[Rfam]
RNA: M-box riboswitch aptamer (ykoK leader)
RNA sequence: AAAAUUAAUUGUUAGGUGAGGCUCCUACAAGAAUGCACGCUACUGCCCGGAAACAUCGAGAGAUGCCAAUGGGUCAACAGGUUUUAUCGAAUCAAGGUAUAACUUAAUGUAGCUAGACGAUUUUGUCUUAAGUCUUGUAGUGCUAAAACUCAACGUUUCUAGCUGUAUUU
Number, nucleotide and partner (000 for none) at each position: 001a000002a000003a000004a000005u000006u165007a164008a000009u162010u161011g154012u153013u095014a000015g150016g149017u148018g000019a000020g144021g143022c142023u000024c000025c140026u139027a138028c137029a136030a135031g134032a133033a000034u000035g000036c000037a000038c000039g113040c112041u111042a110043c109044u000045g074046c073047c072048c071049g070050g000051a000052a000053a000054c065055a064056u063057c062058g000059a000060g000061a000062g057063a056064u055065g054066c000067c000068a000069a000070u049071g048072g047073g046074u045075c000076a000077a000078c000079a000080g104081g103082u102083u101084u000085u000086a098087u097088c096089g000090a000091a000092u000093c000094a000095a013096g088097g087098u086099a000100u000101a083102a082103c081104u080105u000106a000107a000108u000109g043110u042111a041112g040113c039114u000115a128116g127117a126118c000119g000120a000121u000122u000123u000124u000125g000126u117127c116128u115129u000130a000131a000132g000133u032134c031135u030136u029137g028138u027139a026140g025141u000142g022143c021144u020145a000146a000147a000148a017149c016150u015151c000152a000153a012154c011155g000156u000157u000158u000159c000160u000161a010162g009163c000164u007165g006166u000167a000168u000169u000170u000